Shown here is a 47-nucleotide sequence from Paraglaciecola arctica, a member of the family "Guanidine-II riboswitch aptamer (mini-ykkC)". The family's consensus secondary structure is taken from published work. Gene Ontology term of the family: regulation of gene expression. A search with the family's covariance model found it, with a score of 47 bits.
RNA sequence: AAGUGAGGACGACCUCACCUCUCAAAAAUUUUCAGGGGACGACCCCU
Numbered sequence: 001a002a003g004u005g006a007g008g009a010c011g012a013c014c015u016c017a018c019c020u021c022u023c024a025a026a027a028a029u030u031u032u033c034a035g036g037g038g039a040c041g042a043c044c045c046c047u
Stems, first nucleotide, its partner, number of pairs: 001020001003018006034047005